RNA sequence: GCAAGUAUGCACACUGCUAUGUUCCGUUUCUUUUUUUCCUUUAGCGCCUGAUUACAGGGGGCUUUGCGCGUAAGAAAAGAAACGAAAAAUAGCGCUCAAGCCUCCCUCAUGGAGGCUUUUUUGCU
Numbered sequence: 001g002c003a004a005g006u007a008u009g010c011a012c013a014c015u016g017c018u019a020u021g022u023u024c025c026g027u028u029u030c031u032u033u034u035u036u037u038c039c040u041u042u043a044g045c046g047c048c049u050g051a052u053u054a055c056a057g058g059g060g061g062c063u064u065u066g067c068g069c070g071u072a073a074g075a076a077a078a079g080a081a082a083c084g085a086a087a088a089a090u091a092g093c094g095c096u097c098a099a100g101c102c103u104c105c106c107u108c109a110u111g112g113a114g115g116c117u118u119u120u121u122u123g124c125u
Base pairs, nucleotide, nucleotide: 016093017092018091019090022087023086025084026083027082028081029080030079031078032077033076034075036073037072039070042056057067059065060064098118099117100116101115102114103113104112105111
The record is a 125-nucleotide RNA from Serratia sp. DD3, which matches "Phenylalanine leader peptide" in Rfam. Taxonomically the source falls in Serratia (Bacteria, Pseudomonadota, Gammaproteobacteria, Yersiniaceae). The base pairs follow the family's consensus structure, which was predicted with CMfinder. The literature on the family includes a 1978 paper in Proc Natl Acad Sci U S A by Zurawski et al., "Nucleotide sequence of the leader region of the phenylalanine operon of Escherichia coli". Rfam 15.1 lists 379 matches to the family in 290 species. Its family is annotated with cellular amino acid metabolic process in the Gene Ontology. Rfam classes the family as a cis-regulatory leader.